[Rfam]
RNA: t44 RNA
Organism: Alteromonas sp. 5E99-2
RNA sequence: GAGUAAAUUAAUUUAAAUCACACAUAUACUACAACUGAAUGUCGGGGUGUUUCCGCUGCAACGAAUUUGCACUGGGAAAUCGAUAUUUGGGGUAUAUGGAGGCCUAAC
Numbered sequence: 001g002a003g004u005a006a007a008u009u010a011a012u013u014u015a016a017a018u019c020a021c022a023c024a025u026a027u028a029c030u031a032c033a034a035c036u037g038a039a040u041g042u043c044g045g046g047g048u049g050u051u052u053c054c055g056c057u058g059c060a061a062c063g064a065a066u067u068u069g070c071a072c073u074g075g076g077a078a079a080u081c082g083a084u085a086u087u088u089g090g091g092g093u094a095u096a097u098g099g100a101g102g103c104c105u106a107a108c
Stems, first nucleotide, its partner, number of pairs: 023098008036089009049080005